A member of the RNA family "Small Cajal body specific RNA 8" from Podarcis lilfordi, 132 nucleotides long. It is annotated as a small Cajal body RNA. Its family is annotated with Cajal body, RNA processing and nucleolus in the Gene Ontology. It scores 135 bits against the family's covariance model. scaRNAs are a specific class of small nuclear RNAs which localise to the Cajal bodies and guide the modification of RNA polymerase II transcribed spliceosomal RNAs U1, U2, U4, U5 and U12. U92 belong to the H/ACA box class of guide RNAs as it has the predicted hairpin-hinge-hairpin-tail structure, conserved H/ACA-box motifs and is found associated with GAR1.

Nucleotides: 132
Stems, first nucleotide, its partner, number of pairs: 002058006015045004022038003068126001070125006083111003088106004
Number, partner (000 for none) and nucleotide at each position: 001000u002058g003057g004056g005055a006054g007053g008000c009000u010000g011000a012000u013000a014000c015045u016044c017043a018042a019000a020000u021000a022038g023037a024036g025000a026000u027000a028000a029000a030000g031000c032000u033000u034000u035000g036024c037023u038022c039000u040000a041000g042018u043017u044016g045015g046000c047000a048000c049000u050000a051000g052000c053007u054006c055005u056004c057003c058002c059000u060000a061000u062000a063000a064000u065000a066000a067000a068126a069000c070125u071124g072123c073122c074121u075120u076000u077000u078000g079000a080000u081000g082000a083111c084110c085109g086000g087000g088106a089105c090104g091103a092000a093000u094000u095000g096000a097000g098000g099000g100000a101000a102000a103091u104090c105089g106088u107000a108000a109085c110084g111083g112000a113000c114000a115000g116000a117000u118000a119000c120075g121074g122073g123072g124071c125070a126068u127000a128000c129000a130000g131000c132000u